GcvB RNA: a 207-nucleotide RNA from Vibrio maritimus. The base pairs follow the family's consensus structure, which is taken from published work. On this family, see Urbanowski et al., Mol Microbiol 2000: "The gcvB gene encodes a small untranslated RNA involved in expression of the dipeptide and oligopeptide transport systems in Escherichia coli".

[Rfam]
RNA sequence: CAAACGCGAGUCUGAACGGCUCGGUUCUCUCUAGAACCGAUUGACUCUGCGCUUGCGAUGUUGUGUUUGCAAUCUCGAUUUUCGAGUUAGGUAGAAUUCUACCACCACACACUGGUUAGUUAUCCCCUAGCUGAUGUGUGUACUUCCUGUAUUUUUGACCUGUCUGUCAAAUUUUCUUACACCGCCUAUUUGGCGGUGUUUUUUUAU
Numbered sequence: 001c002a003a004a005c006g007c008g009a010g011u012c013u014g015a016a017c018g019g020c021u022c023g024g025u026u027c028u029c030u031c032u033a034g035a036a037c038c039g040a041u042u043g044a045c046u047c048u049g050c051g052c053u054u055g056c057g058a059u060g061u062u063g064u065g066u067u068u069g070c071a072a073u074c075u076c077g078a079u080u081u082u083c084g085a086g087u088u089a090g091g092u093a094g095a096a097u098u099c100u101a102c103c104a105c106c107a108c109a110c111a112c113u114g115g116u117u118a119g120u121u122a123u124c125c126c127c128u129a130g131c132u133g134a135u136g137u138g139u140g141u142a143c144u145u146c147c148u149g150u151a152u153u154u155u156u157g158a159c160c161u162g163u164c165u166g167u168c169a170a171a172u173u174u175u176c177u178u179a180c181a182c183c184g185c186c187u188a189u190u191u192g193g194c195g196g197u198g199u200u201u202u203u204u205u206a207u
Stems, first nucleotide, its partner, number of pairs: 009046004015042002021040008074086004089132002092129003151173001153171003179199007